[Rfam]
RNA sequence: GGAGGGCAUCCGUACCCGGUGGUGCGGCCGGGCUUCAAACUCGGUUGGGGAUGUCAGACAUUCCCAGAUCAGUUCGACUCUGGUUGCCCUCC
Numbered sequence: 001g002g003a004g005g006g007c008a009u010c011c012g013u014a015c016c017c018g019g020u021g022g023u024g025c026g027g028c029c030g031g032g033c034u035u036c037a038a039a040c041u042c043g044g045u046u047g048g049g050g051a052u053g054u055c056a057g058a059c060a061u062u063c064c065c066a067g068a069u070c071a072g073u074u075c076g077a078c079u080c081u082g083g084u085u086g087c088c089c090u091c092c
Stems, first nucleotide, its partner, number of pairs: 001092008011026006027045006047065005069083004
Dot-bracket structure: ((((((((..((((((....))))))((((((.......)))))).(((((.........)))))...((((.......)))).))))))))
Rfam assigns this 92-nucleotide RNA sequence from Candidatus Burkholderia verschuerenii to the family "Selenocysteine transfer RNA". Lineage of the source: Bacteria > Pseudomonadota > Burkholderiales > Burkholderiaceae > Burkholderia. Pairs were carried over by alignment from the consensus structure, which is taken from published work.